This 101-nucleotide sequence from Tepidimonas charontis belongs to the Rfam family "SAH (S-adenosyl-L-homocysteine) riboswitch aptamer". Lineage of the source: Bacteria > Pseudomonadota > Betaproteobacteria > Burkholderiales > Tepidimonas.
RNA sequence: CUGGCCGAGGAGCGUUGCAGCGCGAUUCAUUCGCGCGAGGCUCGAGCAGCGCCGGUGGCGCCCAACGGCCGCCGGUUCCGUGGCAACGACGCUCACCCACC
Numbered sequence: 001c002u003g004g005c006c007g008a009g010g011a012g013c014g015u016u017g018c019a020g021c022g023c024g025a026u027u028c029a030u031u032c033g034c035g036c037g038a039g040g041c042u043c044g045a046g047c048a049g050c051g052c053c054g055g056u057g058g059c060g061c062c063c064a065a066c067g068g069c070c071g072c073c074g075g076u077u078c079c080g081u082g083g084c085a086a087c088g089a090c091g092c093u094c095a096c097c098c099a100c101c
Base pairs, nucleotide, nucleotide: 002048003047006044007043008042021035022034023033024032025031